[Rfam]
RNA sequence: GGGUUCGAAGGCACACUGUGUGCUUUCGGAGGAUAGACGGGUAGCAAAUGGUCGGGCCGCCAUUCG
Numbered sequence: 001g002g003g004u005u006c007g008a009a010g011g012c013a014c015a016c017u018g019u020g021u022g023c024u025u026u027c028g029g030a031g032g033a034u035a036g037a038c039g040g041g042u043a044g045c046a047a048a049u050g051g052u053c054g055g056g057c058c059g060c061c062a063u064u065c066g
Base pairs, nucleotide, nucleotide: 005029006028007027008026009025010024011023012022045066047064048063050061051060052059
Dot-bracket structure: ....((((((((.........))))))))...............(.((.(((......))).)).)
Rfam assigns this 66-nucleotide sequence to the family "nhaA-I RNA". Pairs were carried over by alignment from the consensus structure, which is taken from published work. Acidobacteria, Alphaproteobacteria, Betaproteobacteria and Gammaproteobacteria, Verrucomicrobia, cand. division NC10.